[Rfam]
RNA: Glycine riboswitch aptamer
Organism: Actinoplanes campanulatus
RNA sequence: GUAACCGUCGCGGGAGAGUCCCCACCCUGGUGGCGGGGCGCCGAAGGAGCAACUUCUCCCUCAGAAUCUCUCAGGCUCAGGUACCGCGACCGGUCA
Dot-bracket structure: ......(((((((......((((...........)))).(((((..(((...((........))...))))).))).......)))))))......